[Rfam]
RNA sequence: CGGGGAAAGAAGACCCUGUUGAGCUUGACUCUAGUCAGACUUUGUGAAUUGACUUGGGAGGUGUAGAAUAAGUGGGAGACGCAAGUCGACGAUGAAAUACCACUACUCCUGGCGUCAAUUUACUUAUUUCGUUGUUUUGAAUCAGGCCCUCGAGGCCUUUGUUUCUAGACUUAAGUUCAUAUUCGUAUGGACGAUCUACGCGAGAGACAAAGUCUGGUGGGGAGUUUGGCUGGGGCGGCACAUCUGUUAAACGAUAACACAGGUGUCCUAAGAGGAGCUCAAUGAGAACAGAAAUCUCAUGUAGAACAAAAGGGUAAAAGCUCCUUUGAUUUUGAUUUUCAGUAUGAAUACAAACUGUGAAAGCAUGGCCUAUCGAUCCUUUAGUCUUUAGAAACUUUAAGCUAGAGGUGUCAGAAAAGUUACCACAGGGAUAACUGGCUUGUGGCAGCCAAGCGUUCAUAGCGACGUUGCUUUUUGAUUCUUCGAUGUCGGCUCUUCCUAUCAUUGCCUCGCAGCAGAGGCCAAGUGUCGGAUUGUUCAUCCACCAACAGGGAACGUGAGCUGGGUUUAGACCGUCGUGAGACAGGUUAGUUUUACCCU
Numbered sequence: 001c002g003g004g005g006a007a008a009g010a011a012g013a014c015c016c017u018g019u020u021g022a023g024c025u026u027g028a029c030u031c032u033a034g035u036c037a038g039a040c041u042u043u044g045u046g047a048a049u050u051g052a053c054u055u056g057g058g059a060g061g062u063g064u065a066g067a068a069u070a071a072g073u074g075g076g077a078g079a080c081g082c083a084a085g086u087c088g089a090c091g092a093u094g095a096a097a098u099a100c101c102a103c104u105a106c107u108c109c110u111g112g113c114g115u116c117a118a119u120u121u122a123c124u125u126a127u128u129u130c131g132u133u134g135u136u137u138u139g140a141a142u143c144a145g146g147c148c149c150u151c152g153a154g155g156c157c158u159u160u161g162u163u164u165c166u167a168g169a170c171u172u173a174a175g176u177u178c179a180u181a182u183u184c185g186u187a188u189g190g191a192c193g194a195u196c197u198a199c200g201c202g203a204g205a206g207a208c209a210a211a212g213u214c215u216g217g218u219g220g221g222g223a224g225u226u227u228g229g230c231u232g233g234g235g236c237g238g239c240a241c242a243u244c245u246g247u248u249a250a251a252c253g254a255u256a257a258c259a260c261a262g263g264u265g266u267c268c269u270a271a272g273a274g275g276a277g278c279u280c281a282a283u284g285a286g287a288a289c290a291g292a293a294a295u296c297u298c299a300u301g302u303a304g305a306a307c308a309a310a311a312g313g314g315u316a317a318a319a320g321c322u323c324c325u326u327u328g329a330u331u332u333u334g335a336u337u338u339u340c341a342g343u344a345u346g347a348a349u350a351c352a353a354a355c356u357g358u359g360a361a362a363g364c365a366u367g368g369c370c371u372a373u374c375g376a377u378c379c380u381u382u383a384g385u386c387u388u389u390a391g392a393a394a395c396u397u398u399a400a401g402c403u404a405g406a407g408g409u410g411u412c413a414g415a416a417a418a419g420u421u422a423c424c425a426c427a428g429g430g431a432u433a434a435c436u437g438g439c440u441u442g443u444g445g446c447a448g449c450c451a452a453g454c455g456u457u458c459a460u461a462g463c464g465a466c467g468u469u470g471c472u473u474u475u476u477g478a479u480u481c482u483u484c485g486a487u488g489u490c491g492g493c494u495c496u497u498c499c500u501a502u503c504a505u506u507g508c509c510u511c512g513c514a515g516c517a518g519a520g521g522c523c524a525a526g527u528g529u530c531g532g533a534u535u536g537u538u539c540a541u542c543c544a545c546c547a548a549c550a551g552g553g554a555a556c557g558u559g560a561g562c563u564g565g566g567u568u569u570a571g572a573c574c575g576u577c578g579u580g581a582g583a584c585a586g587g588u589u590a591g592u593u594u595u596a597c598c599c600u
Stems, first nucleotide, its partner, number of pairs: 003600003007595002015429004020425002022421005028225004035217007044123010054112007071104005078087002127205005137198001139196002144158005175192005228241001229239003242264006267368002273325006279305002282300006306315002330354003335349004356365003379407006387401004438479001440477001442476001444472006453463002490565001491563004495557001496554005503528002507522005531543004571589004575584003
Shown here is a 600-nucleotide part of an RNA from Plasmodiophora brassicae, a member of the family "Eukaryotic large subunit ribosomal RNA". The sequence is in the family's curated seed alignment. The base pairs follow the family's consensus structure, which is taken from published work.